[Rfam]
RNA sequence: AUCGCAAGUUUGAGGCCACAGCAUUAGUGCUCAUGGUGUGGCCCUGUCAGAUUGCAACAAAAUCUGCAAACUCUGAU
Numbered sequence: 001a002u003c004g005c006a007a008g009u010u011u012g013a014g015g016c017c018a019c020a021g022c023a024u025u026a027g028u029g030c031u032c033a034u035g036g037u038g039u040g041g042c043c044c045u046g047u048c049a050g051a052u053u054g055c056a057a058c059a060a061a062a063u064c065u066g067c068a069a070a071c072u073c074u075g076a077u
Stems, first nucleotide, its partner, number of pairs: 012044001014043004020077001022075002027039003048066006

Shown here is a 77-nucleotide RNA sequence from Crocodylus porosus, a member of the family "Mammalian CPEB3 ribozyme". A search with the family's covariance model found it, with a score of 36 bits. About the family: The mammalian CPEB3 ribozyme is a self cleaving RNA located in the second intron of the CPEB3 gene which belongs to a family of genes regulating messenger RNA polyadenylation.